[Rfam]
RNA sequence: GGGGGUGACUGGUUUCGACUUCGUACGUUACGGCAGGGGAAGCGAGCCGAGGAAGCCGACGUCGUCUCGAGAAUCGUUCGUCGGAAACCAAUAAGCGCCAAUAACAAUCGCGCUGACUUCGCUCUCGCCGCCUGAGGCGAGUAGCAAGUCUGUCGGCCUGGGAGUGCCUUCGACCCAGUUAGCCGGCAUCAGCUAGAGGGCUGGCCAACCGGACCCGGUCGCGGGGUCCGUGCGGCGAGAUCAAUCAGCGACUGGGCCCGUCACACCGACUCGCUCGCGUGAUCGGAGGGGCCGAGUAGAGGCACAGCGAGCUGCGCUCGGAGAAGCCCUGGCAAGGCGGCGAAGGACCCGGGUUCGAUUCCCGGCACCUCCACCA
Numbered sequence: 001g002g003g004g005g006u007g008a009c010u011g012g013u014u015u016c017g018a019c020u021u022c023g024u025a026c027g028u029u030a031c032g033g034c035a036g037g038g039g040a041a042g043c044g045a046g047c048c049g050a051g052g053a054a055g056c057c058g059a060c061g062u063c064g065u066c067u068c069g070a071g072a073a074u075c076g077u078u079c080g081u082c083g084g085a086a087a088c089c090a091a092u093a094a095g096c097g098c099c100a101a102u103a104a105c106a107a108u109c110g111c112g113c114u115g116a117c118u119u120c121g122c123u124c125u126c127g128c129c130g131c132c133u134g135a136g137g138c139g140a141g142u143a144g145c146a147a148g149u150c151u152g153u154c155g156g157c158c159u160g161g162g163a164g165u166g167c168c169u170u171c172g173a174c175c176c177a178g179u180u181a182g183c184c185g186g187c188a189u190c191a192g193c194u195a196g197a198g199g200g201c202u203g204g205c206c207a208a209c210c211g212g213a214c215c216c217g218g219u220c221g222c223g224g225g226g227u228c229c230g231u232g233c234g235g236c237g238a239g240a241u242c243a244a245u246c247a248g249c250g251a252c253u254g255g256g257c258c259c260g261u262c263a264c265a266c267c268g269a270c271u272c273g274c275u276c277g278c279g280u281g282a283u284c285g286g287a288g289g290g291g292c293c294g295a296g297u298a299g300a301g302g303c304a305c306a307g308c309g310a311g312c313u314g315c316g317c318u319c320g321g322a323g324a325a326g327c328c329c330u331g332g333c334a335a336g337g338c339g340g341c342g343a344a345g346g347a348c349c350c351g352g353g354u355u356c357g358a359u360u361c362c363c364g365g366c367a368c369c370u371c372c373a374c375c376a
Stems, first nucleotide, its partner, number of pairs: 001372007019345006028336001032333001034331005043320005048069005056084006125147001127145002130142002151188006158178005166201006204236003210230003217253006255293005261287002268284002275309001280306002349365005
This 376-nucleotide RNA from Micromonospora craterilacus belongs to the Rfam family "transfer-messenger RNA". A search with the family's covariance model found it, with a score of 134 bits. Clan: tRNA clan. NCBI's taxonomy places the organism under Bacteria, Actinomycetota, Actinomycetes, Micromonosporaceae, Micromonospora. Rfam describes the family as follows. Bacterial tmRNA, also known as 10Sa RNA or SsrA, is named for its dual tRNA and mRNA-like properties. Its role is to liberate the mRNA from a stalled ribosome. To accomplish this part of the tmRNA is used as a reading frame that ends in a translation stop signal. The broken mRNA is replaced in the ribosome by the tmRNA and translation of the tmRNA leads to addition of a proteolysis tag to the incomplete protein enabling recognition by a protease. Recently a number of permuted tmRNA genes have been found encoded in two parts. tmRNAs have been identified in eubacteria and some chloroplasts but are absent from archaeal and eukaryote nuclear genomes.